[Rfam]
Nucleotides: 106
Stems, first nucleotide, its partner, number of pairs: 005097004010092001011089002016083002023037001025035003038059002042054003064078005
Number, partner (000 for none) and nucleotide at each position: 001000g002000u003000a004000u005097u006096c007095u008094g009000g010092g011089g012088a013000g014000u015000a016083c017082a018000a019000c020000c021000c022000u023037u024000g025035a026034a027033g028000a029000g030000c031000a032000a033027c034026u035025u036000a037023a038059g039058u040000a041000c042054u043053a044052a045000u046000u047000u048000a049000a050000u051000u052044u053043u054042a055000c056000g057000u058039g059038c060000c061000c062000c063000u064078a065077u066076g067075u068074a069000a070000u071000u072000c073000g074068u075067g076066c077065a078064u079000u080000a081000c082017u083016g084000c085000u086000a087000g088012u089011c090000a091000a092010c093000a094008u095007g096006g097005g098000u099000a100000u101000u102000a103000u104000a105000u106000a